RNA: Plastid-rpl20 3UTR RNA
Organism: Musa balbisiana
RNA sequence: ACAGAAUUCCCCCGGAGAAGGAACUCCGGAAAAUAGAAUAAAAUAAAUUAAGAUAGGAAUAGGAAUGAACGAAUAUGUUCAAU
Numbered sequence: 001a002c003a004g005a006a007u008u009c010c011c012c013c014g015g016a017g018a019a020g021g022a023a024c025u026c027c028g029g030a031a032a033a034u035a036g037a038a039u040a041a042a043a044u045a046a047a048u049u050a051a052g053a054u055a056g057g058a059a060u061a062g063g064a065a066u067g068a069a070c071g072a073a074u075a076u077g078u079u080c081a082a083u
Base pairs, nucleotide, nucleotide: 007031008030012029013028014027015026016025017024067080068079069078070077